A member of the RNA family "MIR6217 microRNA precursor family" from Miscanthus lutarioriparius, 228 nucleotides long. NCBI's taxonomy places the organism under Eukaryota, Streptophyta, Streptophytina, Petrosaviidae, Miscanthus. It scores 165 bits against the family's covariance model. Its family is annotated with miRNA-mediated post-transcriptional gene silencing and RISC complex in the Gene Ontology.

RNA sequence: UGACUAUAAAAUAACUUAUUAUGUAGCCACUUGAAGUUGCGAUAAUUACUAUGUUAAUUUACGAGAUUAUAAUAAUUCCUUACUAAGUGAUUUACUGUAACGUUAUGUUAAAUAUCCCCACGUGUUAUAGUAACCCAACUAUCGUAAAUAUAUAUUGACGUUAUUGUAAAUUAGUAUAUAAAAUUAUAGUAAAUGAAGGUGGCUACAUAAUAACUUAUUUUGUAGCUG
Numbered sequence: 001u002g003a004c005u006a007u008a009a010a011a012u013a014a015c016u017u018a019u020u021a022u023g024u025a026g027c028c029a030c031u032u033g034a035a036g037u038u039g040c041g042a043u044a045a046u047u048a049c050u051a052u053g054u055u056a057a058u059u060u061a062c063g064a065g066a067u068u069a070u071a072a073u074a075a076u077u078c079c080u081u082a083c084u085a086a087g088u089g090a091u092u093u094a095c096u097g098u099a100a101c102g103u104u105a106u107g108u109u110a111a112a113u114a115u116c117c118c119c120a121c122g123u124g125u126u127a128u129a130g131u132a133a134c135c136c137a138a139c140u141a142u143c144g145u146a147a148a149u150a151u152a153u154a155u156u157g158a159c160g161u162u163a164u165u166g167u168a169a170a171u172u173a174g175u176a177u178a179u180a181a182a183a184u185u186a187u188a189g190u191a192a193a194u195g196a197a198g199g200u201g202g203c204u205a206c207a208u209a210a211u212a213a214c215u216u217a218u219u220u221u222g223u224a225g226c227u228g
Stems, first nucleotide, its partner, number of pairs: 001228002004225011016213017037192004042187006050178013065165003069161002074155001080147004087142003091138002093132011107117001